[Rfam]
RNA sequence: CGGCGUACGUACGGCCCGGCCUCCUCCCGCUCGCCGGUCGGCCGACGCCACUUCCCCGGCGCCGGCAGGCCGUCCCCUUUCGAGCGGGUGGGGACCAGGCCGUACGUACACGACCGC
Numbered sequence: 001c002g003g004c005g006u007a008c009g010u011a012c013g014g015c016c017c018g019g020c021c022u023c024c025u026c027c028c029g030c031u032c033g034c035c036g037g038u039c040g041g042c043c044g045a046c047g048c049c050a051c052u053u054c055c056c057c058g059g060c061g062c063c064g065g066c067a068g069g070c071c072g073u074c075c076c077c078u079u080u081c082g083a084g085c086g087g088g089u090g091g092g093g094a095c096c097a098g099g100c101c102g103u104a105c106g107u108a109c110a111c112g113a114c115c116g117c
Base pairs, nucleotide, nucleotide: 010104011103012102013101014100015099016098018096019095021093022092023091024090026088027087028086029085030084031083032082033081035072036071037070038069039068041066042065043064044063046061047060048059